[Rfam]
RNA sequence: GAACUAGAAGCUCUGGAAGCUUCUUAAGCGUUUUAUAUAAUCAGAAAUAUAUAUGCGCGUUC
Number, nucleotide and partner (000 for none) at each position: 001g062002a061003a060004c059005u000006a024007g023008a022009a021010g020011c019012u018013c000014u000015g000016g000017a000018a012019g011020c010021u009022u008023c007024u006025u000026a000027a000028g058029c057030g056031u055032u000033u000034u053035a052036u051037a050038u049039a048040a000041u000042c000043a000044g000045a000046a000047a000048u039049a038050u037051a036052u035053a034054u000055g031056c030057g029058c028059g004060u003061u002062c001
The record is a 62-nucleotide RNA sequence from Drosophila ananassae, which matches "Nanos 3' UTR translation control element" in Rfam. The literature on the family includes a 2000 paper in Mol Cell by Crucs et al., "Overlapping but distinct RNA elements control repression and activation of nanos translation". Rfam classes the family as a cis-regulatory element. The sequence is in the family's curated seed alignment. Pairs were carried over by alignment from the consensus structure, which is taken from published work. The source organism's lineage runs through Eukaryota, Arthropoda, Mandibulata, Allotriocarida and ananassae species complex.